Background: Shown here is a 99-nucleotide RNA from Aliidiomarina haloalkalitolerans, a member of the family "c-di-GMP-I riboswitch aptamer". A search with the family's covariance model found it, with a score of 52 bits. Rfam describes the family as follows. GEMM was predicted in a large-scale screen for bacterial structured RNA regulatory elements. Genes associated with GEMM are involved in a diverse array of functions, including chemotaxis regulation, signal transduction, secretion and chitin. Taxonomically the source falls in Aliidiomarina (Bacteria, Gammaproteobacteria, Alteromonadales, Idiomarinaceae).
RNA sequence: CUGACGAACAGGUACACCUAUCGUGAGGUAGGGUCGCAAAGCUACGGGUCUUGUUUAACGAACUUCAAUAAGCUUCAGCAAGACGGCCGAGCCGCCGAA
Numbered sequence: 001c002u003g004a005c006g007a008a009c010a011g012g013u014a015c016a017c018c019u020a021u022c023g024u025g026a027g028g029u030a031g032g033g034u035c036g037c038a039a040a041g042c043u044a045c046g047g048g049u050c051u052u053g054u055u056u057a058a059c060g061a062a063c064u065u066c067a068a069u070a071a072g073c074u075u076c077a078g079c080a081a082g083a084c085g086g087c088c089g090a091g092c093c094g095c096c097g098a099a
Base pairs, nucleotide, nucleotide: 012037013036017032018031019030020029021028022027041092042091043090045089046088047087048084049083050082055078056077058075